[Rfam]
Shown here is a 161-nucleotide sequence from Herbidospora galbida, a member of the family "c-di-AMP riboswitch aptamer (ydaO/yuaA leader)".

RNA sequence: CACGCGACACAGCCGAGUCCAUGCAGCCAGGAGGCAUGGAGCCGGGGACCCAAAAGGUUCCCCCGAGGAGCCAGGGGUGAAUCGGCGAGAAUUCCGCGCCGUAGGGCUACUUCCCUGCCCGAAUCCGUCAGCUAACCCGGUAGGCGUCAGAGGAAGACCCA
Numbered sequence: 001c002a003c004g005c006g007a008c009a010c011a012g013c014c015g016a017g018u019c020c021a022u023g024c025a026g027c028c029a030g031g032a033g034g035c036a037u038g039g040a041g042c043c044g045g046g047g048a049c050c051c052a053a054a055a056g057g058u059u060c061c062c063c064c065g066a067g068g069a070g071c072c073a074g075g076g077g078u079g080a081a082u083c084g085g086c087g088a089g090a091a092u093u094c095c096g097c098g099c100c101g102u103a104g105g106g107c108u109a110c111u112u113c114c115c116u117g118c119c120c121g122a123a124u125c126c127g128u129c130a131g132c133u134a135a136c137c138c139g140g141u142a143g144g145c146g147u148c149a150g151a152g153g154a155a156g157a158c159c160c161a
Base pairs, nucleotide, nucleotide: 012145013144014143018040019039020038021037022036023035024034041141042140043139044138045137046136051074075126076125077124083101084100085099086098104120105119106118107117
It scores 83 bits against the family's covariance model.